[Rfam]
RNA sequence: AGCUUCUCUGGAGGCGAUGAAGCCUGAUCCCUCGCUCGGGCGCUUGGGACAGGUGGAGCCAGGAGCGCGACCGGCCGGAAGCU
Numbered sequence: 001a002g003c004u005u006c007u008c009u010g011g012a013g014g015c016g017a018u019g020a021a022g023c024c025u026g027a028u029c030c031c032u033c034g035c036u037c038g039g040g041c042g043c044u045u046g047g048g049a050c051a052g053g054u055g056g057a058g059c060c061a062g063g064a065g066c067g068c069g070a071c072c073g074g075c076c077g078g079a080a081g082c083u
Stems, first nucleotide, its partner, number of pairs: 001083005008078004013060003022054005028048002038072002040068005
Dot-bracket structure: (((((..((((.(((......(((((.((........[[[[[[[..)).)))))...)))...]]]]]..]]..)))))))))

This 83-nucleotide RNA sequence belongs to the Rfam family "c-di-GMP-II-GAG riboswitch aptamer".
For this family Rfam cites "Bioinformatic analysis of riboswitch structures uncovers variant classes with altered ligand specificity" (Weinberg et al., Proc Natl Acad Sci U S A, 2017).
The family is grouped with related families in Rfam's "c-di-GMP_II riboswitch clan".